6S / SsrS RNA: a 175-nucleotide RNA from Halanaerobium praevalens. Rfam 15.1 lists 5,006 matches to the family in 4,638 species. Pairs were carried over by alignment from the consensus structure, which is taken from published work. A reference for the family is Trotochaud and Wassarman (2005), "A highly conserved 6S RNA structure is required for regulation of transcription", Nat Struct Mol Biol. From the family's description: E. coli 6S RNA was the first non coding RNA to be sequenced, but its function was unknown until recently. It scores 97 bits against the family's covariance model. The family's RNA type in Rfam is non-coding RNA gene.
RNA sequence: UAUUAUCUACCGUGUUCGAUAAUGAUUAAACAUUUUGACCAACACUUAGACAUAGGGAGCUUGAACUCUACCUGCGGCGUAGAAGCCUUAGAUGGACCUAUAAACCAGGUAGGAGAGCACCCACUUGGCAGACCAGGGAUCAAAAUUCCAAAUCAACCGGCACGGUGGAUGAACU
Numbered sequence: 001u002a003u004u005a006u007c008u009a010c011c012g013u014g015u016u017c018g019a020u021a022a023u024g025a026u027u028a029a030a031c032a033u034u035u036u037g038a039c040c041a042a043c044a045c046u047u048a049g050a051c052a053u054a055g056g057g058a059g060c061u062u063g064a065a066c067u068c069u070a071c072c073u074g075c076g077g078c079g080u081a082g083a084a085g086c087c088u089u090a091g092a093u094g095g096a097c098c099u100a101u102a103a104a105c106c107a108g109g110u111a112g113g114a115g116a117g118c119a120c121c122c123a124c125u126u127g128g129c130a131g132a133c134c135a136g137g138g139a140u141c142a143a144a145a146u147u148c149c150a151a152a153u154c155a156a157c158c159g160g161c162a163c164g165g166u167g168g169a170u171g172a173a174c175u
Stems, first nucleotide, its partner, number of pairs: 003172013017159002032146007039138002055122003059118004066112001069111006081099002086095002
Dot-bracket structure: ..(((((((((((((.((.............(((((((((..............(((.((((...(..((((((......((...((......))..))......)))))))..)))).)))..............)).)))))))...........)))))))))))))))...